[Rfam]
RNA sequence: CUUCAGCGACCCGAGCCACAGGGGCUCUCCGGUGCGGUCCUGCCCGUACGUGGCGAGGAGCGCCUGCGCCUC
Numbered sequence: 001c002u003u004c005a006g007c008g009a010c011c012c013g014a015g016c017c018a019c020a021g022g023g024g025c026u027c028u029c030c031g032g033u034g035c036g037g038u039c040c041u042g043c044c045c046g047u048a049c050g051u052g053g054c055g056a057g058g059a060g061c062g063c064c065u066g067c068g069c070c071u072c
Stems, first nucleotide, its partner, number of pairs: 014026004030066001035062002040057002044053003